[Rfam]
RNA: Purine riboswitch aptamer
RNA sequence: AUACUAUAUAUUUUUCGUCUUCGUAUAAUUUUGGGAAUAUGGCCCAUGAGUUUCUACCAGGUUACCGUCAUUAACCUGACUACGCUGACCUCUCAAUCUGAG
Numbered sequence: 001a002u003a004c005u006a007u008a009u010a011u012u013u014u015u016c017g018u019c020u021u022c023g024u025a026u027a028a029u030u031u032u033g034g035g036a037a038u039a040u041g042g043c044c045c046a047u048g049a050g051u052u053u054c055u056a057c058c059a060g061g062u063u064a065c066c067g068u069c070a071u072u073a074a075c076c077u078g079a080c081u082a083c084g085c086u087g088a089c090c091u092c093u094c095a096a097u098c099u100g101a102g
Base pairs, nucleotide, nucleotide: 018088019087022084023083024082025081029049030048032046033045034044035043058078059077060076061075062074063073064072